[Rfam]
RNA sequence: AUUUCCUCAUCUUUGGUUAUUUAGCUUUCUGAUUGCCCGUACAAACAUCAUAAAGCUAUUUAACCAAAUUUGAGGACCC
Number, nucleotide and partner (000 for none) at each position: 001a000002u000003u000004u076005c075006c000007u073008c072009a071010u000011c000012u068013u067014u066015g065016g064017u063018u062019a061020u000021u000022u058023a057024g056025c055026u054027u000028u052029c000030u050031g049032a048033u047034u000035g000036c000037c000038c000039g000040u000041a000042c000043a000044a000045a000046c000047a033048u032049c031050a030051u000052a028053a000054a026055g025056c024057u023058a022059u000060u000061u019062a018063a017064c016065c015066a014067a013068a012069u000070u000071u009072g008073a007074g000075g005076a004077c000078c000079c000
Annotation
The family of this 79-nucleotide RNA sequence from Tetranychus urticae is "mir-9/mir-79 microRNA precursor family". The family's consensus secondary structure was predicted with RNAalifold. For this family Rfam cites "Identification of novel genes coding for small expressed RNAs" (Lagos-Quintana et al., Science, 2001). Rfam links the family to the GO terms RISC complex and miRNA-mediated post-transcriptional gene silencing. The sequence is in the family's curated seed alignment.